[Rfam]
RNA: mir-63 microRNA precursor family
Organism: Carlito syrichta
RNA sequence: UGUACUGUGCGUGUGUCCCCCCGAGGUCCCAUCCUCUCCUAUAAGGAUAAGAGUCAUGUUGGAUUAGAGUCCAGGACUCUUAUCCUUAUAGGAGAGGAUGGGACCUCGGGGGGACACACGCACAGUACA
Numbered sequence: 001u002g003u004a005c006u007g008u009g010c011g012u013g014u015g016u017c018c019c020c021c022c023g024a025g026g027u028c029c030c031a032u033c034c035u036c037u038c039c040u041a042u043a044a045g046g047a048u049a050a051g052a053g054u055c056a057u058g059u060u061g062g063a064u065u066a067g068a069g070u071c072c073a074g075g076a077c078u079c080u081u082a083u084c085c086u087u088a089u090a091g092g093a094g095a096g097g098a099u100g101g102g103a104c105c106u107c108g109g110g111g112g113g114a115c116a117c118a119c120g121c122a123c124a125g126u127a128c129a
Stems, first nucleotide, its partner, number of pairs: 001129013016113005022108017040090004045085011